[Rfam]
RNA: c-di-AMP riboswitch aptamer (ydaO/yuaA leader)
RNA sequence: CUCCGAGAUACGCCAGGGCAGAAGUGGGGGAACCAUGUUCCUCCGGGCCCGCGCAGUUUCCGCGCGGCCCUUGGGGUUAAGUCGGCUCCCGUCCCGCGUAUUCCCCAUGCGCGCGGCCGGCGGGCCGGCCGGGCUUCCCGGCCCGAACCCGACAGCUAACCUCACAGGCGUGCGGGAAAGAUUUU
Dot-bracket structure: ..((....(............).((((((....((....................................))(((.....(((((((.................................)))))))..((((......))))...))).........)))))).)).................
Numbered sequence: 001c002u003c004c005g006a007g008a009u010a011c012g013c014c015a016g017g018g019c020a021g022a023a024g025u026g027g028g029g030g031a032a033c034c035a036u037g038u039u040c041c042u043c044c045g046g047g048c049c050c051g052c053g054c055a056g057u058u059u060c061c062g063c064g065c066g067g068c069c070c071u072u073g074g075g076g077u078u079a080a081g082u083c084g085g086c087u088c089c090c091g092u093c094c095c096g097c098g099u100a101u102u103c104c105c106c107a108u109g110c111g112c113g114c115g116g117c118c119g120g121c122g123g124g125c126c127g128g129c130c131g132g133g134c135u136u137c138c139c140g141g142c143c144c145g146a147a148c149c150c151g152a153c154a155g156c157u158a159a160c161c162u163c164a165c166a167g168g169c170g171u172g173c174g175g176g177a178a179a180g181a182u183u184u185u
Stems, first nucleotide, its partner, number of pairs: 003168002009022001024165006034073002074150003082128007131144004